[Rfam]
RNA sequence: CGCACGCGGGUUCGCGGCCGAGGCCGAUAGGUCACGGUCGCUCCGGUGUCAGGAGAUGGGGUCACCCCCAUGCUUCUGGCGUUCGCCCGCGGAGGAUUAACCGGAAAAUGACAGGACACUU
Numbered sequence: 001c002g003c004a005c006g007c008g009g010g011u012u013c014g015c016g017g018c019c020g021a022g023g024c025c026g027a028u029a030g031g032u033c034a035c036g037g038u039c040g041c042u043c044c045g046g047u048g049u050c051a052g053g054a055g056a057u058g059g060g061g062u063c064a065c066c067c068c069c070a071u072g073c074u075u076c077u078g079g080c081g082u083u084c085g086c087c088c089g090c091g092g093a094g095g096a097u098u099a100a101c102c103g104g105a106a107a108a109u110g111a112c113a114g115g116a117c118a119c120u121u
Base pairs, nucleotide, nucleotide: 001094003092005091006090007089008088009087010086014041015040025036026035048080049079050078051077052076053075054074055073
The record is a 121-nucleotide RNA from Oceanibaculum indicum, which matches "rpsB sRNA" in Rfam. On this family, see Meyer et al., BMC Genomics 2009: "Identification of candidate structured RNAs in the marine organism 'Candidatus Pelagibacter ubique'". It is annotated as a small RNA. Lineage of the source: Bacteria > Pseudomonadota > Oceanibaculaceae > Oceanibaculum > Oceanibaculum indicum.